[Rfam]
RNA sequence: AACUAUAUAGGCGAUGGAGUUCGCCAUUGACCGCCUUAGUGCUAAUGACUCCUACCAAUUC
Numbered sequence: 001a002a003c004u005a006u007a008u009a010g011g012c013g014a015u016g017g018a019g020u021u022c023g024c025c026a027u028u029g030a031c032c033g034c035c036u037u038a039g040u041g042c043u044a045a046u047g048a049c050u051c052c053u054a055c056c057a058a059u060u061c
Base pairs, nucleotide, nucleotide: 010025011024012023013022016052017051018050019049020048021047033042034041
About this RNA
This 61-nucleotide RNA sequence from Paenibacillus cellulosilyticus belongs to the Rfam family "Fluoride riboswitch aptamer (crcB RNA motif)". NCBI's taxonomy places the organism under Bacteria, Bacillati, Bacilli, Caryophanales, Paenibacillus. The base pairs follow the family's consensus structure, which is taken from published work.